[Rfam]
RNA sequence: CUUUACAUGAUGAAUAAAUACUUUACGUAUUUGUUACCUAUUUUUUUCUGGCAUCUCUAAUGUUAGAAUGCGAAGUUUAAGUACUAUCCAUUCGAUGAAUACAAUAAUUUGACUAUUAUCUGAAU
Numbered sequence: 001c002u003u004u005a006c007a008u009g010a011u012g013a014a015u016a017a018a019u020a021c022u023u024u025a026c027g028u029a030u031u032u033g034u035u036a037c038c039u040a041u042u043u044u045u046u047u048c049u050g051g052c053a054u055c056u057c058u059a060a061u062g063u064u065a066g067a068a069u070g071c072g073a074a075g076u077u078u079a080a081g082u083a084c085u086a087u088c089c090a091u092u093c094g095a096u097g098a099a100u101a102c103a104a105u106a107a108u109u110u111g112a113c114u115a116u117u118a119u120c121u122g123a124a125u
Stems, first nucleotide, its partner, number of pairs: 067092004
Shown here is a 125-nucleotide sequence from Zygotorulaspora mrakii, a member of the family "Small nucleolar RNA snR48". The family's consensus secondary structure was predicted with ILM. A search with the family's covariance model found it, with a score of 88 bits. The literature on the family includes a 1999 paper in Science by Lowe and Eddy, "A computational screen for methylation guide snoRNAs in yeast". The family is grouped with related families in Rfam's "SNORD60 clan". The organism belongs to Zygotorulaspora, within Eukaryota. Rfam classes the family as a C/D-box small nucleolar RNA.